[Rfam]
RNA sequence: AGUUGAGAAUUUGAGGCCAUAGCAGAAGUGCUCAUGGUGCGACCAUGUCAGUCUCCAGUGAACCUGUGAAUUCUGCU
Numbered sequence: 001a002g003u004u005g006a007g008a009a010u011u012u013g014a015g016g017c018c019a020u021a022g023c024a025g026a027a028g029u030g031c032u033c034a035u036g037g038u039g040c041g042a043c044c045a046u047g048u049c050a051g052u053c054u055c056c057a058g059u060g061a062a063c064c065u066g067u068g069a070a071u072u073c074u075g076c077u
Stems, first nucleotide, its partner, number of pairs: 015044002018041001021077007028040003049066003054061002
The family of this 77-nucleotide RNA from Crocodylus porosus is "Mammalian CPEB3 ribozyme".
Pairs were carried over by alignment from the consensus structure, which is taken from published work.
The organism belongs to Crocodylus, within Eukaryota.
Rfam's curators write: The mammalian CPEB3 ribozyme is a self cleaving RNA located in the second intron of the CPEB3 gene which belongs to a family of genes regulating messenger RNA polyadenylation.